Shown here is an 81-nucleotide RNA sequence from a Coriobacteriaceae bacterium, a member of the family "aspS RNA".
[Rfam]
RNA sequence: GCGCACGUUACGCCGUCUACGCAACCUGCGCCGUCUUGGAGCAAGCCGCCCGCACCGGCACGGGGCGGCAAGACGAAAGGA
Numbered sequence: 001g002c003g004c005a006c007g008u009u010a011c012g013c014c015g016u017c018u019a020c021g022c023a024a025c026c027u028g029c030g031c032c033g034u035c036u037u038g039g040a041g042c043a044a045g046c047c048g049c050c051c052g053c054a055c056c057g058g059c060a061c062g063g064g065g066c067g068g069c070a071a072g073a074c075g076a077a078a079g080g081a
Base pairs, nucleotide, nucleotide: 001031002030003029004028005027007025008024009023011021012020033074034073035072036071037070045069046068047067048066049065050064051063
The source organism's lineage runs through Bacteria, Bacillati, Actinomycetota, Coriobacteriales and Coriobacteriaceae.